[Rfam]
RNA sequence: CCGCGCCCGCUACCUGAGAGUCAUGGCUAUCAGGUCUGUGCGAUUUGAAUCUGGUCGUGCCGCUGGCCUUAUAGGCCACCGCCAUGCGCAUCAAAGAUACCGACGGUCUAAAGCGUCCGUGCAGGUCUUGCGCAGUUUCCCCGCUGAUCGGCCCCGGCCUUUGGCGAGGUGACGUAGAUAGCACGAUAGGUCG
Numbered sequence: 001c002c003g004c005g006c007c008c009g010c011u012a013c014c015u016g017a018g019a020g021u022c023a024u025g026g027c028u029a030u031c032a033g034g035u036c037u038g039u040g041c042g043a044u045u046u047g048a049a050u051c052u053g054g055u056c057g058u059g060c061c062g063c064u065g066g067c068c069u070u071a072u073a074g075g076c077c078a079c080c081g082c083c084a085u086g087c088g089c090a091u092c093a094a095a096g097a098u099a100c101c102g103a104c105g106g107u108c109u110a111a112a113g114c115g116u117c118c119g120u121g122c123a124g125g126u127c128u129u130g131c132g133c134a135g136u137u138u139c140c141c142c143g144c145u146g147a148u149c150g151g152c153c154c155c156g157g158c159c160u161u162u163g164g165c166g167a168g169g170u171g172a173c174g175u176a177g178a179u180a181g182c183a184c185g186a187u188a189g190g191u192c193g
Stems, first nucleotide, its partner, number of pairs: 004042003012035006019028003055186006061081002064078005085134005094129004100125002103120004136172002139169002142166006150159003